[Rfam]
RNA sequence: UCUCGAUGAUGAUAAAUCUAAGGCUUGUUUCUCAGAAACAUUCGCAGUGGCCGCCUGAGAUCUUUCGCCUUCGCCAGGCUUGAGAGAUUAUGCUGCAUUAUCCUUCCUUGGAUGUCUGAGA
Numbered sequence: 001u002c003u004c005g006a007u008g009a010u011g012a013u014a015a016a017u018c019u020a021a022g023g024c025u026u027g028u029u030u031c032u033c034a035g036a037a038a039c040a041u042u043c044g045c046a047g048u049g050g051c052c053g054c055c056u057g058a059g060a061u062c063u064u065u066c067g068c069c070u071u072c073g074c075c076a077g078g079c080u081u082g083a084g085a086g087a088u089u090a091u092g093c094u095g096c097a098u099u100a101u102c103c104u105u106c107c108u109u110g111g112a113u114g115u116c117u118g119a120g121a
Stems, first nucleotide, its partner, number of pairs: 003121002061087006

A member of the RNA family "Small nucleolar RNA SNORD14" from Daucus carota, 121 nucleotides long. Taxonomically the source falls in Daucus carota (Eukaryota, Viridiplantae, Apiineae, Apioideae). About the family: U14 small nucleolar RNA (U14 snoRNA) is required for early cleavages of eukaryotic precursor rRNAs. It scores 75 bits against the family's covariance model. The family's RNA type in Rfam is C/D-box small nucleolar RNA. The literature on the family includes a 1996 paper in Nucleic Acids Res by Samarsky et al., "An essential domain in Saccharomyces cerevisiae U14 snoRNA is absent in vertebrates, but conserved in other yeasts".